[Rfam]
RNA sequence: GCGCAGUGCGGAGGGCCACUUCGGUGUCACAAAUGGCAGAAGCUCGCUGCAGCUUUUAGCGCGGCGGGGCUGUGCGCUGCAUUCAAUUCCGAGUACACCGGGCGAAAGUCCCCGGGCGAUGGGGCAGAGAGUGCCAGCCCGAAAGGGCAGGACCCCUGCGUGCCUUCUUAGGCCGCAGGGCAGCUCGCCAUAGCAACAGUUAUGUGGCCAGUGGAGAUGCAAUCCACCAACACAACGGGGCUUACUCCCGCACUGACG
Dot-bracket structure: .((((((((((..((((((.(((((((........((((.....................................))))..............)))))))....[[[.[[[[.........((((.....)))).((((....)))).(.....(((((.((((....)))))))))..)......................)))))).(((((.......))))).........]]]]]]]....)))))))).))
Numbered sequence: 001g002c003g004c005a006g007u008g009c010g011g012a013g014g015g016c017c018a019c020u021u022c023g024g025u026g027u028c029a030c031a032a033a034u035g036g037c038a039g040a041a042g043c044u045c046g047c048u049g050c051a052g053c054u055u056u057u058a059g060c061g062c063g064g065c066g067g068g069g070c071u072g073u074g075c076g077c078u079g080c081a082u083u084c085a086a087u088u089c090c091g092a093g094u095a096c097a098c099c100g101g102g103c104g105a106a107a108g109u110c111c112c113c114g115g116g117c118g119a120u121g122g123g124g125c126a127g128a129g130a131g132u133g134c135c136a137g138c139c140c141g142a143a144a145g146g147g148c149a150g151g152a153c154c155c156c157u158g159c160g161u162g163c164c165u166u167c168u169u170a171g172g173c174c175g176c177a178g179g180g181c182a183g184c185u186c187g188c189c190a191u192a193g194c195a196a197c198a199g200u201u202a203u204g205u206g207g208c209c210a211g212u213g214g215a216g217a218u219g220c221a222a223u224c225c226a227c228c229a230a231c232a233c234a235a236c237g238g239g240g241c242u243u244a245c246u247c248c249c250g251c252a253c254u255g256a257c258g
Stems, first nucleotide, its partner, number of pairs: 002258002004255008014209006021101007036080004106243003110240004123135004137148004150181001156178005162173004211227005